[Rfam]
RNA sequence: ACGACCUUUUAAAAAUUGUCCAGAGAGGCAAACAAGGGAACGUAAGCAUAGCCAGCACAUAAGUUUUAUGAUGCCUUAGCUUCGUGCACCCUAAAUUGCCUCGCUUCUGACAGAAGUGAGGCUUUUUUAU
Numbered sequence: 001a002c003g004a005c006c007u008u009u010u011a012a013a014a015a016u017u018g019u020c021c022a023g024a025g026a027g028g029c030a031a032a033c034a035a036g037g038g039a040a041c042g043u044a045a046g047c048a049u050a051g052c053c054a055g056c057a058c059a060u061a062a063g064u065u066u067u068a069u070g071a072u073g074c075c076u077u078a079g080c081u082u083c084g085u086g087c088a089c090c091c092u093a094a095a096u097u098g099c100c101u102c103g104c105u106u107c108u109g110a111c112a113g114a115a116g117u118g119a120g121g122c123u124u125u126u127u128u129a130u
Stems, first nucleotide, its partner, number of pairs: 005037004016031005061092001063090001065088001067086005073080002095125001098122011
Shown here is a 130-nucleotide RNA sequence from Caryophanon tenue, a member of the family "PyrR binding site".
The family's RNA type in Rfam is cis-regulatory element.
It scores 56 bits against the family's covariance model.
NCBI's taxonomy places the organism under Bacteria, Bacillota, Bacilli, Caryophanaceae, Caryophanon.
From the family's description: This family represents the PyrR binding site and terminator structure.
The base pairs follow the family's consensus structure, which is taken from published work.
Rfam 15.1 lists 1,498 matches to the family in 930 species.